[Rfam]
RNA sequence: CCCCUCAGUAGCUCAGUAGUCAGUGUAGGUCCUGUCCACCUGCUAGCAGCUACAUCCGGCUACUGGGUCUCUAAUGGGUUCA
Numbered sequence: 001c002c003c004c005u006c007a008g009u010a011g012c013u014c015a016g017u018a019g020u021c022a023g024u025g026u027a028g029g030u031c032c033u034g035u036c037c038a039c040c041u042g043c044u045a046g047c048a049g050c051u052a053c054a055u056c057c058g059g060c061u062a063c064u065g066g067g068u069c070u071c072u073a074a075u076g077g078g079u080u081c082a
Base pairs, nucleotide, nucleotide: 013066014065015064016063017062018061020059021058023055024054025053026052027051028050032049033048034047035046

Rfam assigns this 82-nucleotide RNA from Clarias magur to the family "mir-221 microRNA precursor family". Lineage of the source: Eukaryota > Eumetazoa > Neopterygii > Ostariophysi > Clarias. The match comes from Rfam's covariance-model search (62 bits). Rfam links the family to the GO terms RISC complex and miRNA-mediated post-transcriptional gene silencing.